[Rfam]
RNA sequence: AGCAGCAGCUAGGGGUCCGUUCCCGAAUCCGGGAACCGGUGAGACAGUCCCUCAAUACCUGACACGGAUAAUGCCGCCGUAGGGAAGCUGGGAUUUUUUCGU
Numbered sequence: 001a002g003c004a005g006c007a008g009c010u011a012g013g014g015g016u017c018c019g020u021u022c023c024c025g026a027a028u029c030c031g032g033g034a035a036c037c038g039g040u041g042a043g044a045c046a047g048u049c050c051c052u053c054a055a056u057a058c059c060u061g062a063c064a065c066g067g068a069u070a071a072u073g074c075c076g077c078c079g080u081a082g083g084g085a086a087g088c089u090g091g092g093a094u095u096u097u098u099u100c101g102u
Stems, first nucleotide, its partner, number of pairs: 006090005011052004016046001017039003021035001058083004065076003
This 102-nucleotide RNA from Nitrosospira sp. Nsp14 belongs to the Rfam family "TPP riboswitch aptamer (THI element)". A search with the family's covariance model found it, with a score of 60 bits. Rfam links the family to the GO term thiamine pyrophosphate binding.